[Rfam]
RNA sequence: UGGAGCUGUGGAGUGUGACAAUGGUGUUUGUAUCCAAUCCGUCAAACGCCAUUAUCACACUAAAUAGCUACUG
Numbered sequence: 001u002g003g004a005g006c007u008g009u010g011g012a013g014u015g016u017g018a019c020a021a022u023g024g025u026g027u028u029u030g031u032a033u034c035c036a037a038u039c040c041g042u043c044a045a046a047c048g049c050c051a052u053u054a055u056c057a058c059a060c061u062a063a064a065u066a067g068c069u070a071c072u073g
Stems, first nucleotide, its partner, number of pairs: 012061007020053011
Background
mir-122 microRNA precursor family: a 73-nucleotide RNA sequence from Anolis carolinensis. Taxonomically the source falls in Anolis (Eukaryota, Amniota, Episquamata, Toxicofera). The family's consensus secondary structure was predicted with RNAalifold. Its family is annotated with miRNA-mediated post-transcriptional gene silencing and RISC complex in the Gene Ontology. It is one of the family's seed sequences.